A member of the RNA family "t44 RNA" from Aquicella siphonis, 100 nucleotides long. A reference for the family is Tjaden et al. (2002), "Transcriptome analysis of Escherichia coli using high-density oligonucleotide probe arrays", Nucleic Acids Res. A search with the family's covariance model found it, with a score of 48 bits. By type it is a small RNA. The organism belongs to Aquicella, within Bacteria. From the family's description: This family consists of a number of bacterial RNA genes of between 135 and 170 bases in length. The t44 gene has been identified in several species of enteric bacteria but homologs have also been identified in Pseudomonas and Coxiella species. The t44 gene is found between the map and rpsB genes in all species in the full alignment apart from Shigella flexneri.
RNA sequence: ACUAACUUAACUAUAGUCCACACGCUUGUCACAACUUUUCGCUGGGUGCCCUGUCAGAUGAUAAAGACGGGUUGGCGGACAGGAUGGGCGGAGGCUUAAC
Numbered sequence: 001a002c003u004a005a006c007u008u009a010a011c012u013a014u015a016g017u018c019c020a021c022a023c024g025c026u027u028g029u030c031a032c033a034a035c036u037u038u039u040c041g042c043u044g045g046g047u048g049c050c051c052u053g054u055c056a057g058a059u060g061a062u063a064a065a066g067a068c069g070g071g072u073u074g075g076c077g078g079a080c081a082g083g084a085u086g087g088g089c090g091g092a093g094g095c096u097u098a099a100c
Stems, first nucleotide, its partner, number of pairs: 023090008035082002038079006048072004